[Rfam]
The record is a 77-nucleotide RNA from Channa argus, which matches "mir-460 microRNA precursor family" in Rfam. The literature on the family includes a 2006 paper in FEBS Lett by Xu et al., "Identification of microRNAs from different tissues of chicken embryo and adult chicken". The match comes from Rfam's covariance-model search (59 bits). Taxonomically the source falls in Channa (Eukaryota, Teleostomi, Neoteleostei, Ctenosquamata). Rfam links the family to the GO terms RISC complex and miRNA-mediated post-transcriptional gene silencing.
RNA sequence: UGUUUAGGCCUCCUCAUUGUGCAUGCUGUGUGUAUCUCUGUGUAUCCCACAGCGCCUGCAAUGUGGAGGUUGAGACA
Numbered sequence: 001u002g003u004u005u006a007g008g009c010c011u012c013c014u015c016a017u018u019g020u021g022c023a024u025g026c027u028g029u030g031u032g033u034a035u036c037u038c039u040g041u042g043u044a045u046c047c048c049a050c051a052g053c054g055c056c057u058g059c060a061a062u063g064u065g066g067a068g069g070u071u072g073a074g075a076c077a
Base pairs, nucleotide, nucleotide: 012066013065015063016062017061018060019059020058021057024054026052027051028050029049030048